[Rfam]
RNA: c-di-AMP riboswitch aptamer (ydaO/yuaA leader)
Organism: Streptomyces zinciresistens
RNA sequence: UCGCGUCAUCCACCUACGCAACUCACACGCACGGCAGGAGCGGGGGAACCAGGUAAGUCGCCGGACCGGACGCCUUGAUGGCGCCCCGGGCCGGCUAGGGGUGAAGUCGUGCCGUCUCCCUGACGGCGCGGCCGGGCAUCUCCCGCCCGAACCCGACAGCUCACCUCGCAGGCGCCGGAGAGGAACA
Numbered sequence: 001u002c003g004c005g006u007c008a009u010c011c012a013c014c015u016a017c018g019c020a021a022c023u024c025a026c027a028c029g030c031a032c033g034g035c036a037g038g039a040g041c042g043g044g045g046g047a048a049c050c051a052g053g054u055a056a057g058u059c060g061c062c063g064g065a066c067c068g069g070a071c072g073c074c075u076u077g078a079u080g081g082c083g084c085c086c087c088g089g090g091c092c093g094g095c096u097a098g099g100g101g102u103g104a105a106g107u108c109g110u111g112c113c114g115u116c117u118c119c120c121u122g123a124c125g126g127c128g129c130g131g132c133c134g135g136g137c138a139u140c141u142c143c144c145g146c147c148c149g150a151a152c153c154c155g156a157c158a159g160c161u162c163a164c165c166u167c168g169c170a171g172g173c174g175c176c177g178g179a180g181a182g183g184a185a186c187a
Base pairs, nucleotide, nucleotide: 002174003173004172009039010038011037040169041168042167043166044165045164050098099154100153101152107131108130109129110128111127112126113125114124115123116122134148135147136146137145